Notes:
A member of the RNA family "mir-190 microRNA precursor family" from Rhodamnia argentea, 95 nucleotides long. Clan: mir-50 clan. For this family Rfam cites "MicroRNA discovery and profiling in human embryonic stem cells by deep sequencing of small RNA libraries" (Bar et al., Stem Cells, 2008). The source organism's lineage runs through Eukaryota, Streptophyta, Streptophytina, Euphyllophyta and Rhodamnia. It scores 55 bits against the family's covariance model. Gene Ontology terms of the family: miRNA-mediated post-transcriptional gene silencing and RISC complex.
[Rfam]
RNA sequence: GUCUCGUUUAGAUAUGUUUGAUAUUCUUGGUCGUAAUUUGGUCGUUCAACUCAAUGUACUAUUCAACCAAGAAUCGAACAUAUGCUCAACGAAAC
Numbered sequence: 001g002u003c004u005c006g007u008u009u010a011g012a013u014a015u016g017u018u019u020g021a022u023a024u025u026c027u028u029g030g031u032c033g034u035a036a037u038u039u040g041g042u043c044g045u046u047c048a049a050c051u052c053a054a055u056g057u058a059c060u061a062u063u064c065a066a067c068c069a070a071g072a073a074u075c076g077a078a079c080a081u082a083u084g085c086u087c088a089a090c091g092a093a094a095c
Stems, first nucleotide, its partner, number of pairs: 005091004012083011024071002029068003033064001